Shown here is an 84-nucleotide RNA from Chlorocebus sabaeus, a member of the family "mir-3127 microRNA precursor family". Its family is annotated with miRNA-mediated post-transcriptional gene silencing and RISC complex in the Gene Ontology. The source organism's lineage runs through Eukaryota, Opisthokonta, Bilateria, Cercopithecoidea and Chlorocebus. Pairs were carried over by alignment from the consensus structure, which was predicted with RNAalifold.

[Rfam]
RNA sequence: GGGCUGGCCAGGCCCAUCAGGGCUUGUGGAAUGGGAAGAAGGGAUCCUUCCCCUUCUGCAGGCUUGCUGGGUGCGGCUGAACCC
Numbered sequence: 001g002g003g004c005u006g007g008c009c010a011g012g013c014c015c016a017u018c019a020g021g022g023c024u025u026g027u028g029g030a031a032u033g034g035g036a037a038g039a040a041g042g043g044a045u046c047c048u049u050c051c052c053c054u055u056c057u058g059c060a061g062g063c064u065u066g067c068u069g070g071g072u073g074c075g076g077c078u079g080a081a082c083c084c
Stems, first nucleotide, its partner, number of pairs: 002083002005079005012072005018066004023062009033052006